[Rfam]
RNA sequence: CGAUGAGAUAGAGGCGCAUCUUAAAAUCAGUAAGCUUUCUGAGGAGUCAACGAUGAUGGAAGUGGAAAGGGUUAGGGUGCCGAAGUAUGUAGCAACUGACAACGGCUAUAUACUGGUGUAAGACUUAAGAAGUUUUAUACUGUCAUGUCUUUUGCGUGAUGGGCUGUUGAUCGA
Numbered sequence: 001c002g003a004u005g006a007g008a009u010a011g012a013g014g015c016g017c018a019u020c021u022u023a024a025a026a027u028c029a030g031u032a033a034g035c036u037u038u039c040u041g042a043g044g045a046g047u048c049a050a051c052g053a054u055g056a057u058g059g060a061a062g063u064g065g066a067a068a069g070g071g072u073u074a075g076g077g078u079g080c081c082g083a084a085g086u087a088u089g090u091a092g093c094a095a096c097u098g099a100c101a102a103c104g105g106c107u108a109u110a111u112a113c114u115g116g117u118g119u120a121a122g123a124c125u126u127a128a129g130a131a132g133u134u135u136u137a138u139a140c141u142g143u144c145a146u147g148u149c150u151u152u153u154g155c156g157u158g159a160u161g162g163g164c165u166g167u168u169g170a171u172c173g174a
Base pairs, nucleotide, nucleotide: 007168008167009166010165011164016080017079018078019077020076021075022074023073024072034063035062036061037060038059039058084114085113086112087111088110089109090108091107092106093105115141116140117139118138119137120136121135122134123133124132125131143159144158145157146156147155
RNA: Lysine riboswitch aptamer